[Rfam]
RNA sequence: UUUAAGGGGAAUGUUGUCUGGUUCAAGGCCUACCUAUUGAUCUGUUUCAGUUUCAUUCAAUAUACUGAAAAAUCUGUAUAUGGGAAACUAUCCUGUGGUCGAUUUGAUCAUUUCUUAGGAUCUCCUCGGACCAGGCUUCAUUCCCCUUAAU
Numbered sequence: 001u002u003u004a005a006g007g008g009g010a011a012u013g014u015u016g017u018c019u020g021g022u023u024c025a026a027g028g029c030c031u032a033c034c035u036a037u038u039g040a041u042c043u044g045u046u047u048c049a050g051u052u053u054c055a056u057u058c059a060a061u062a063u064a065c066u067g068a069a070a071a072a073u074c075u076g077u078a079u080a081u082g083g084g085a086a087a088c089u090a091u092c093c094u095g096u097g098g099u100c101g102a103u104u105u106g107a108u109c110a111u112u113u114c115u116u117a118g119g120a121u122c123u124c125c126u127c128g129g130a131c132c133a134g135g136c137u138u139c140a141u142u143c144c145c146c147u148u149a150a151u
Base pairs, nucleotide, nucleotide: 002150003149004148005147006146007145008144009143010142011141012140013139016136017135018134019133020132021131024128026126027125028124
mir-166 microRNA precursor family: a 151-nucleotide RNA sequence from Ricinus communis. It scores 78 bits against the family's covariance model. Taxonomically the source falls in Ricinus (Eukaryota, Streptophyta, Spermatophyta, rosids). Its family is annotated with miRNA-mediated post-transcriptional gene silencing and RISC complex in the Gene Ontology. About the family: This family represents the plant microRNA (miRNA) precursor mir-166. Rfam 15.1 lists 2,599 matches to the family in 229 species. On this family, see Ambros, Cell 2001: "microRNAs: tiny regulators with great potential".